A member of the RNA family "Small Cajal body-specific RNA 2" from Chrysochloris asiatica, 427 nucleotides long.
The match comes from Rfam's covariance-model search (401 bits).
It is annotated as a small Cajal body RNA.
Rfam links the family to the GO terms nucleolus and RNA processing.
The family has 20 seed sequences and 612 matches in Rfam 15.1.
Lineage of the source: Eukaryota > Amniota > Afrotheria > Chrysochlorinae > Chrysochloris.
For this family Rfam cites "Guide RNAs with 5' caps and novel box C/D snoRNA-like domains for modification of snRNAs in metazoa" (Tycowski et al., Curr Biol, 2004).
RNA sequence: GCUUACGCGAGGGAGAGCGGCCUGGGGCGAGGUAGUGUGUGUGGAUGUGUUGUGUUUCGUGGAAGGCGCGUGAGGUCGGACCAAGUGUGUGUUUGUGUGGGCGCGUGAGUGUGAGCAAGCACGCAAGAAGAGUGCAAGACGAGUGCGAGGGCCCGCCCCUGCGCCCCUCUCCCCGCCUACACCUUGAUCUUAUUUGAUCGGAUUGUGACCCCAGCCCCGCCGGGCCAACCCGAAAUGAAAUGAUCCCCUCCUGCGAAGCCCCUCCGGGGCGCUGUGCAGCGAGGCCCAUUGGGCGGCGGCAAAGCUGCGGUCCCCGAGGUCCCGGAGCCGGUCCAACGGGGCCCGGCGCUCAGAAAUGAUGAAUUGAUCAGAUAGACGAGGCCGGGCUUGCCCUGCGCCGCUGAUUAUCGAGGCGAUUCUGAUCUGA
Numbered sequence: 001g002c003u004u005a006c007g008c009g010a011g012g013g014a015g016a017g018c019g020g021c022c023u024g025g026g027g028c029g030a031g032g033u034a035g036u037g038u039g040u041g042u043g044g045a046u047g048u049g050u051u052g053u054g055u056u057u058c059g060u061g062g063a064a065g066g067c068g069c070g071u072g073a074g075g076u077c078g079g080a081c082c083a084a085g086u087g088u089g090u091g092u093u094u095g096u097g098u099g100g101g102c103g104c105g106u107g108a109g110u111g112u113g114a115g116c117a118a119g120c121a122c123g124c125a126a127g128a129a130g131a132g133u134g135c136a137a138g139a140c141g142a143g144u145g146c147g148a149g150g151g152c153c154c155g156c157c158c159c160u161g162c163g164c165c166c167c168u169c170u171c172c173c174c175g176c177c178u179a180c181a182c183c184u185u186g187a188u189c190u191u192a193u194u195u196g197a198u199c200g201g202a203u204u205g206u207g208a209c210c211c212c213a214g215c216c217c218c219g220c221c222g223g224g225c226c227a228a229c230c231c232g233a234a235a236u237g238a239a240a241u242g243a244u245c246c247c248c249u250c251c252u253g254c255g256a257a258g259c260c261c262c263u264c265c266g267g268g269g270c271g272c273u274g275u276g277c278a279g280c281g282a283g284g285c286c287c288a289u290u291g292g293g294c295g296g297c298g299g300c301a302a303a304g305c306u307g308c309g310g311u312c313c314c315c316g317a318g319g320u321c322c323c324g325g326a327g328c329c330g331g332u333c334c335a336a337c338g339g340g341g342c343c344c345g346g347c348g349c350u351c352a353g354a355a356a357u358g359a360u361g362a363a364u365u366g367a368u369c370a371g372a373u374a375g376a377c378g379a380g381g382c383c384g385g386g387c388u389u390g391c392c393c394u395g396c397g398c399c400g401c402u403g404a405u406u407a408u409c410g411a412g413g414c415g416a417u418u419c420u421g422a423u424c425u426g427a
Stems, first nucleotide, its partner, number of pairs: 052164004056072001058070004089112001091110008115152002120147001122145003127140001194240002198233004203228003207225001210224003214220002262319002265316005271311003276308002279305002284300003287296001327347005332341003351426004361419006380399003385394002
Dot-bracket structure: ...................................................(((((.((((.....)))).)................(.((((((((....)))))))).)..((...(.(((..(............)..))).)...))........)))).............................((..((((.(((.(..(((.((...)).))))))).)))).....)).....................((.(((((.(((..((.((...((((........).)))...)).)))))))))).)).......((((((((....))).)))))...((((......((((((.............(((..((......))..)))..............))))))...)))).